[Rfam]
RNA sequence: CGAGUUGGCCAGACAGUUGCCGCGUUCGCAAGAACGGGGAGGAAAGUCCGGGCUUCAUAGAGCAGGGUACCAGGUAACGCCUGGGCGGUGUGAACCGACGACAAGUGCAGCAGAGAGGAGACCGCCUGCUUGAUUUAUCAAGUAGGUAAGGGUGAAAGGGUGCGGUAAGAGCGCACCGUGCGGCUAGUAAUAGUCCGUAGCAAGGUAAACUCUACCCGAAGCAAGACCAAAUAGGGUUCCAUACGGCGCGGCUCGCGUUGGAACCGGGUAGGUCGCUUGAGCCUGUGAGCGAUUGCAGGCCUAGAUGAAUAACUGUCCACGACAAGACCCGGCUUAUCGGCUUACUCUUUGG
Numbered sequence: 001c002g003a004g005u006u007g008g009c010c011a012g013a014c015a016g017u018u019g020c021c022g023c024g025u026u027c028g029c030a031a032g033a034a035c036g037g038g039g040a041g042g043a044a045a046g047u048c049c050g051g052g053c054u055u056c057a058u059a060g061a062g063c064a065g066g067g068u069a070c071c072a073g074g075u076a077a078c079g080c081c082u083g084g085g086c087g088g089u090g091u092g093a094a095c096c097g098a099c100g101a102c103a104a105g106u107g108c109a110g111c112a113g114a115g116a117g118g119a120g121a122c123c124g125c126c127u128g129c130u131u132g133a134u135u136u137a138u139c140a141a142g143u144a145g146g147u148a149a150g151g152g153u154g155a156a157a158g159g160g161u162g163c164g165g166u167a168a169g170a171g172c173g174c175a176c177c178g179u180g181c182g183g184c185u186a187g188u189a190a191u192a193g194u195c196c197g198u199a200g201c202a203a204g205g206u207a208a209a210c211u212c213u214a215c216c217c218g219a220a221g222c223a224a225g226a227c228c229a230a231a232u233a234g235g236g237u238u239c240c241a242u243a244c245g246g247c248g249c250g251g252c253u254c255g256c257g258u259u260g261g262a263a264c265c266g267g268g269u270a271g272g273u274c275g276c277u278u279g280a281g282c283c284u285g286u287g288a289g290c291g292a293u294u295g296c297a298g299g300c301c302u303a304g305a306u307g308a309a310u311a312a313c314u315g316u317c318c319a320c321g322a323c324a325a326g327a328c329c330c331g332g333c334u335u336a337u338c339g340g341c342u343u344a345c346u347c348u349u350u351g352g
Stems, first nucleotide, its partner, number of pairs: 002347004007342004011337001012317007020039002023036005044335003048332005053221004060254004065217005070084005085099001086097004100212002105210002107206002122151002124147009159177006178201001179199005184193003225274004235265006245259005281300008

Shown here is a 352-nucleotide RNA sequence from Shewanella sediminis, a member of the family "Bacterial RNase P class A". Taxonomically the source falls in Shewanella sediminis (Bacteria, Pseudomonadota, Alteromonadales, Shewanellaceae). Gene Ontology terms of the family: tRNA processing, ribonuclease P activity and dimeric ribonuclease P complex.